[Rfam]
RNA sequence: CAACGUUCACCUCGUCACAGGCGAGGCGCAGUUCGACUCAGGCCAUGGAACGGGGACCUGAG
Numbered sequence: 001c002a003a004c005g006u007u008c009a010c011c012u013c014g015u016c017a018c019a020g021g022c023g024a025g026g027c028g029c030a031g032u033u034c035g036a037c038u039c040a041g042g043c044c045a046u047g048g049a050a051c052g053g054g055g056a057c058c059u060g061a062g
Base pairs, nucleotide, nucleotide: 004052005051006050007049008048010026011025012024013023014022037062038061039060040059041058042057043055044054
Rfam assigns this 62-nucleotide RNA sequence to the family "Glutamine-II riboswitch aptamer".
The base pairs follow the family's consensus structure, which is taken from published work.
The literature on the family includes a 2019 paper in Nucleic Acids Res by Huang et al., "Structure and ligand binding of the glutamine-II riboswitch".
It is one of the family's seed sequences.